The record is a 38-nucleotide RNA sequence from Ancylomarina salipaludis, which matches "DUF805b RNA" in Rfam. By type it is a cis-regulatory element. The match comes from Rfam's covariance-model search (42 bits). Taxonomically the source falls in Ancylomarina (Bacteria, Bacteroidota, Marinilabiliales, Marinifilaceae). The base pairs follow the family's consensus structure, which is taken from published work.
RNA sequence: CAGGCGGUAUCCGAAAAGCCUUUAUAACAGAGUAGGAU
Numbered sequence: 001c002a003g004g005c006g007g008u009a010u011c012c013g014a015a016a017a018g019c020c021u022u023u024a025u026a027a028c029a030g031a032g033u034a035g036g037a038u
Stems, first nucleotide, its partner, number of pairs: 002021004010037003